The family of this 85-nucleotide RNA sequence from Mycoplasma wenyonii is "tRNA". The base pairs follow the family's consensus structure, which is taken from published work. A search with the family's covariance model found it, with a score of 61 bits. From the family's description: Transfer RNA (tRNA) molecules are approximately 80 nucleotides in length. Its family is annotated with triplet codon-amino acid adaptor activity in the Gene Ontology.

RNA sequence: GGGUAGGUAGCGAAGUGGUUAAACGCAUCUGACUGUAGAUCAGAUACCUUUUUAGGUUACGGGGGUUCGAAUCCCUCCUUGCCCA
Numbered sequence: 001g002g003g004u005a006g007g008u009a010g011c012g013a014a015g016u017g018g019u020u021a022a023a024c025g026c027a028u029c030u031g032a033c034u035g036u037a038g039a040u041c042a043g044a045u046a047c048c049u050u051u052u053u054a055g056g057u058u059a060c061g062g063g064g065g066u067u068c069g070a071a072u073c074c075c076u077c078c079u080u081g082c083c084c085a
Base pairs, nucleotide, nucleotide: 001084002083003082004081005080006079007078010026011025012024028044029043030042031041032040061077062076063075064074065073